RNA sequence: UUCCCUUGGUGACUGGGUUAAAUCACCACCUCCCUGUUGGACUUGCCCCGGCCUUUUGGUCGGGGUUUUUUU
Numbered sequence: 001u002u003c004c005c006u007u008g009g010u011g012a013c014u015g016g017g018u019u020a021a022a023u024c025a026c027c028a029c030c031u032c033c034c035u036g037u038u039g040g041a042c043u044u045g046c047c048c049c050g051g052c053c054u055u056u057u058g059g060u061c062g063g064g065g066u067u068u069u070u071u072u
Base pairs, nucleotide, nucleotide: 008027009026010025011024012023045066046065047064048063049062050061051060052059

Singlet oxygen resistance RNA X: a 72-nucleotide RNA sequence from Pseudooctadecabacter jejudonensis. It is annotated as a small RNA. The base pairs follow the family's consensus structure. SorX (RSs2461)like SorY is a singlet oxygen induced sRNA that counteracts oxidative stress by targeting mRNA for a transporter in Rhodobacter. It also has an impact on resistance against organic hydroperoxides. It targets SD sequence of potA mRNA via an aSD sequence. The aSD sequence and some neighbouring nucleotides are identical to the one of SorY (targets takP mRNA). On this family, see Peng et al., RNA Biol 2016: "Regulation of a polyamine transporter by the conserved 3' UTR-derived sRNA SorX confers resistance to singlet oxygen and organic hydroperoxides in Rhodobacter sphaeroides". The organism belongs to Pseudooctadecabacter, within Bacteria.